The family of this 84-nucleotide sequence from Chlorocebus sabaeus is "mir-548 microRNA precursor family".
Rfam links the family to the GO terms miRNA-mediated post-transcriptional gene silencing and RISC complex.
Lineage of the source: Eukaryota > Deuterostomia > Dipnotetrapodomorpha > Haplorrhini > Chlorocebus.
The literature on the family includes a 2010 paper in Blood by Jima et al., "Deep sequencing of the small RNA transcriptome of normal and malignant human B cells identifies hundreds of novel microRNAs".
It scores 92 bits against the family's covariance model.
The family's consensus secondary structure was predicted with WAR.
The family has 11 seed sequences and 3,009 matches in Rfam 15.1.
RNA sequence: AUUUAGUUUGGUGCAAAAGUAGUUGCGGUUUUUGUCAUUAAAAGUAAUGGCAAAAACCGCAACUACUUUUGCACCAACCUAAUA
Numbered sequence: 001a002u003u004u005a006g007u008u009u010g011g012u013g014c015a016a017a018a019g020u021a022g023u024u025g026c027g028g029u030u031u032u033u034g035u036c037a038u039u040a041a042a043a044g045u046a047a048u049g050g051c052a053a054a055a056a057c058c059g060c061a062a063c064u065a066c067u068u069u070u071g072c073a074c075c076a077a078c079c080u081a082a083u084a
Stems, first nucleotide, its partner, number of pairs: 003082004008077033